The record is a 74-nucleotide sequence from Dicentrarchus labrax, which matches "Small nucleolar RNA SNORD19" in Rfam. By type it is a C/D-box small nucleolar RNA. A search with the family's covariance model found it, with a score of 40 bits. Lineage of the source: Eukaryota > Teleostomi > Teleostei > Moronidae > Dicentrarchus. Clan: SNORD19 clan.

RNA sequence: UGGAAAUGAGGACAAAAACACAAUUCUGGAUUUCUUAUGAAGACUUCUAAUCCAACUCUGAUCCAAACACUAUG
Numbered sequence: 001u002g003g004a005a006a007u008g009a010g011g012a013c014a015a016a017a018a019c020a021c022a023a024u025u026c027u028g029g030a031u032u033u034c035u036u037a038u039g040a041a042g043a044c045u046u047c048u049a050a051u052c053c054a055a056c057u058c059u060g061a062u063c064c065a066a067a068c069a070c071u072a073u074g
Stems, first nucleotide, its partner, number of pairs: 001065004